[Rfam]
RNA sequence: AUCAGCCGAUCUGGAGAGAGGUCUUAACUGACCCGCCGAAGGGGCACGCAGUGAUACUGCUAAACUCUCAGGCAAAAGGACAGCGGGAGCG
Numbered sequence: 001a002u003c004a005g006c007c008g009a010u011c012u013g014g015a016g017a018g019a020g021g022u023c024u025u026a027a028c029u030g031a032c033c034c035g036c037c038g039a040a041g042g043g044g045c046a047c048g049c050a051g052u053g054a055u056a057c058u059g060c061u062a063a064a065c066u067c068u069c070a071g072g073c074a075a076a077a078g079g080a081c082a083g084c085g086g087g088a089g090c091g
Base pairs, nucleotide, nucleotide: 006086007085008084011083012082013081020033021032022031023030035073036072037071038069039068042067043066044065048060049059

A member of the RNA family "Glycine riboswitch aptamer" from Entomomonas asaccharolytica, 91 nucleotides long. From the family's description: This family represents the bacterial glycine riboswitch. Glycine riboswitches usually consist of two metabolite-binding aptamers domains with similar structures in tandem. The source organism's lineage runs through Bacteria, Pseudomonadati, Gammaproteobacteria, Pseudomonadaceae and Entomomonas. The pairing is the family consensus, mapped onto this sequence.